[Rfam]
RNA sequence: CUGUAGGGCCACAGGCCGUCGGCCACGCUCAGCGCCUCGUCGCCGAUGUGGUCGCCGUCGGCCAGCACGCCCACCACGGCAUCGCUGUCGCCGUACUUGCUGCUGCCGAUCCGGUUGACCUUGCCGUGCGCGAUCAGGAAGACCUCGUUGAUCGGCUGACCGGCCUCGACCAGCACCUCACCGGCCCGGAAGUCGCGCUGGGUGAACCGGUCGGCCAGUUGGGCGAGCAGGGCGUCGUCCUCGAAGCCGCGCAGCACCGGGACCUCGCGCAGCGACGGCGCCCAGACCUUCACCCGGGCGCCGGUCUUGACGAAGCUCACCCGCCCCCGGCCGACCGCAUAGCUCAGCCGGCGGUUCACCCGGUAGGUGCCGGCGCCGACCUCGACCCAGGGCAGCAUCCGGAGCAGCCAGCGGGAGCUGAUGCCCUGCAUCUGCGGUUCGGACUUGGUGGUGGUGGCAAGGUUGCGAGCCGCCGCUGUCGCGAGGCUCUGCUGCACAUCGG
Number, nucleotide and partner (000 for none) at each position: 001c000002u000003g386004u385005a000006g383007g382008g381009c000010c000011a000012c000013a000014g325015g324016c000017c000018g321019u319020c000021g317022g316023c315024c000025a000026c312027g000028c000029u310030c309031a308032g307033c000034g305035c304036c303037u000038c000039g302040u000041c300042g299043c298044c297045g000046a000047u000048g000049u229050g000051g000052u226053c225054g224055c223056c222057g000058u000059c108060g107061g106062c105063c000064a000065g000066c000067a000068c000069g100070c000071c099072c000073a097074c000075c000076a094077c093078g092079g091080c090081a000082u000083c000084g000085c000086u000087g000088u000089c000090g080091c079092c078093g077094u076095a000096c000097u073098u000099g071100c069101u000102g000103c000104u000105g062106c061107c060108g059109a000110u000111c000112c000113g000114g219115u218116u217117g216118a000119c214120c213121u000122u000123g000124c209125c000126g207127u206128g203129c202130g000131c200132g199133a000134u000135c000136a000137g194138g000139a000140a193141g000142a000143c000144c000145u000146c189147g000148u000149u000150g186151a000152u184153c183154g182155g181156c000157u175158g174159a000160c000161c000162g171163g170164c000165c000166u000167c000168g000169a000170c163171c162172a000173g000174c158175a157176c000177c000178u000179c000180a000181c155182c154183g153184g152185c000186c150187c000188g000189g146190a000191a000192g000193u140194c137195g000196c000197g000198c000199u132200g131201g000202g129203u128204g000205a000206a127207c126208c000209g124210g000211u000212c000213g120214g119215c000216c117217a116218g115219u114220u000221g000222g056223g055224c054225g053226a052227g000228c000229a049230g000231g293232g000233c000234g290235u000236c000237g287238u286239c285240c000241u000242c000243g000244a000245a000246g279247c278248c277249g276250c000251g000252c000253a000254g273255c272256a000257c000258c267259g266260g000261g000262a000263c000264c000265u000266c259267g258268c000269g000270c000271a000272g255273c254274g000275a000276c249277g248278g247279c246280g000281c000282c000283c000284a000285g239286a238287c237288c000289u000290u234291c000292a000293c231294c000295c000296g000297g044298g043299c042300g041301c000302c039303g036304g035305u034306c000307u032308u031309g030310a029311c000312g026313a000314a000315g023316c022317u021318c000319a019320c000321c018322c000323g000324c015325c014326c000327c000328c337329g336330g000331c000332c000333g000334a000335c000336c329337g328338c000339a000340u000341a000342g000343c000344u000345c000346a000347g000348c000349c375350g374351g000352c372353g371354g370355u000356u000357c369358a368359c367360c366361c000362g000363g000364u000365a000366g360367g359368u358369g357370c354371c353372g352373g000374c350375g349376c000377c000378g000379a000380c000381c008382u007383c006384g000385a004386c003387c000388c428389a427390g426391g425392g424393c423394a422395g000396c420397a419398u000399c000400c415401g000402g000403a000404g412405c000406a000407g000408c000409c000410a000411g000412c404413g000414g000415g400416a000417g000418c000419u397420g396421a000422u394423g393424c392425c391426c390427u389428g388429c000430a000431u000432c000433u000434g473435c472436g471437g470438u000439u468440c467441g466442g000443a464444c462445u461446u460447g000448g458449u457450g000451g000452u000453g000454g000455u000456g000457g449458c448459a000460a446461g445462g444463u000464u443465g000466c441467g440468a439469g000470c437471c436472g435473c434474c501475g500476c000477u496478g495479u494480c000481g000482c000483g000484a493485g492486g000487c000488u000489c000490u000491g000492c485493u484494g479495c478496a477497c000498a000499u000500c475501g474502g000
RNA: Saccharopolyspora sRNA 350
Organism: Kitasatospora acidiphila